[Rfam]
RNA sequence: GUAAAUAACGGCGAUGGAGUUCGCCACAACCGCCUCCGGGCUGAUGACUCCUACCAGUAC
Numbered sequence: 001g002u003a004a005a006u007a008a009c010g011g012c013g014a015u016g017g018a019g020u021u022c023g024c025c026a027c028a029a030c031c032g033c034c035u036c037c038g039g040g041c042u043g044a045u046g047a048c049u050c051c052u053a054c055c056a057g058u059a060c
Stems, first nucleotide, its partner, number of pairs: 010025004016051006032041003
Background: The record is a 60-nucleotide RNA from Paenibacillus nasutitermitis, which matches "Fluoride riboswitch aptamer (crcB RNA motif)" in Rfam. The family's consensus secondary structure is taken from published work.